A member of the RNA family "Selenocysteine insertion sequence 1" from Stegodyphus mimosarum, 63 nucleotides long. The match comes from Rfam's covariance-model search (35 bits). A reference for the family is Walczak et al. (1996), "A novel RNA structural motif in the selenocysteine insertion element of eukaryotic selenoprotein mRNAs", RNA.
RNA sequence: CUGUUUUCCAUGAUAGGCUGUACCUAAACCAUUAUGGCGGUAUAGUUUGGAGGUUUUUAACAU
Numbered sequence: 001c002u003g004u005u006u007u008c009c010a011u012g013a014u015a016g017g018c019u020g021u022a023c024c025u026a027a028a029c030c031a032u033u034a035u036g037g038c039g040g041u042a043u044a045g046u047u048u049g050g051a052g053g054u055u056u057u058u059a060a061c062a063u
Stems, first nucleotide, its partner, number of pairs: 002062003015048010029037003

Background
Rfam describes the family as follows. The incorporation of selenocysteine into a protein sequence is directed by an in-frame UGA codon (usually a stop codon) within the coding region of the mRNA. Selenoprotein mRNAs contain a conserved secondary structure in the 3' UTR that is required for the distinction of UGA stop from UGA selenocysteine. The selenocysteine insertion sequence (SECIS) is around 60 nt in length and adopts a hairpin structure which is sufficiently well-defined and conserved to act as a computational screen for selenoprotein genes. Lineage of the source: Eukaryota > Metazoa > Chelicerata > Arachnida > Stegodyphus. Rfam 15.1 lists 3,793 matches to the family in 721 species.